[Rfam]
RNA sequence: UAAAGUUUAUCUUGUCUGAUAGAAAUAAAACCAUACCGACCGGGCAGGCUAAACAUUCGCUAUAUUAAGACCAUGCAUGUGUCCCCAGACCUAGUUCUUUGCCUAGGUCUGGUUUUAUAAAUGCUGGUGAUAAAC
Numbered sequence: 001u002a003a004a005g006u007u008u009a010u011c012u013u014g015u016c017u018g019a020u021a022g023a024a025a026u027a028a029a030a031c032c033a034u035a036c037c038g039a040c041c042g043g044g045c046a047g048g049c050u051a052a053a054c055a056u057u058c059g060c061u062a063u064a065u066u067a068a069g070a071c072c073a074u075g076c077a078u079g080u081g082u083c084c085c086c087a088g089a090c091c092u093a094g095u096u097c098u099u100u101g102c103c104u105a106g107g108u109c110u111g112g113u114u115u116u117a118u119a120a121a122u123g124c125u126g127g128u129g130a131u132a133a134a135c
Base pairs, nucleotide, nucleotide: 011047012046014045015044016043017042018041020039070128071127072126073125075124076123085112086111087110088109089108090107091106092105093104094103